[Rfam]
RNA: Clostridiales-3 RNA
Nucleotides: 236
Stems, first nucleotide, its partner, number of pairs: 006031004015024003090159003094108005110131005132156003136153002139150003162171003191231006209222005
Number, partner (000 for none) and nucleotide at each position: 001000u002000a003000g004000u005000a006031g007030u008029u009028c010000g011000a012000u013000g014000g015024a016023c017022u018000g019000a020000g021000a022017a023016g024015u025000g026000a027000a028009g029008a030007a031006c032000g033000a034000g035000g036000a037000g038000u039000u040000g041000g042000u043000u044000a045000u046000g047000a048000a049000u050000c051000u052000g053000g054000u055000a056000a057000a058000a059000g060000g061000a062000a063000c064000a065000a066000g067000g068000a069000u070000g071000u072000u073000g074000c075000g076000g077000a078000a079000g080000g081000a082000u083000a084000a085000u086000a087000a088000c089000c090159c091158a092157u093000a094108u095107g096106g097105g098104g099000c100000a101000c102000a103000g104098c105097c106096c107095u108094a109000a110131u111130c112129c113128u114127c115000a116000c117000a118000a119000u120000g121000g122000c123000a124000g125000a126000a127114g128113a129112g130111g131110a132156g133155a134154u135000a136153g137152u138000u139150c140149u141148u142000a143000u144000u145000u146000g147000a148141a149140a150139g151000a152137g153136c154134g155133u156132c157092g158091u159090g160000a161000a162171c163170a164169c165000g166000a167000a168000a169164g170163u171162g172000g173000c174000u175000u176000g177000c178000c179000u180000g181000c182000a183000a184000u185000u186000c187000c188000c189000a190000u191231g192230u193229g194228u195227a196226c197000g198000g199000g200000c201000g202000a203000u204000a205000g206000a207000g208000g209222g210221g211220u212219u213218c214000g215000g216000a217000u218213g219212a220211a221210c222209c223000a224000g225000a226196g227195u228194a229193c230192a231191c232000c233000u234000a235000c236000a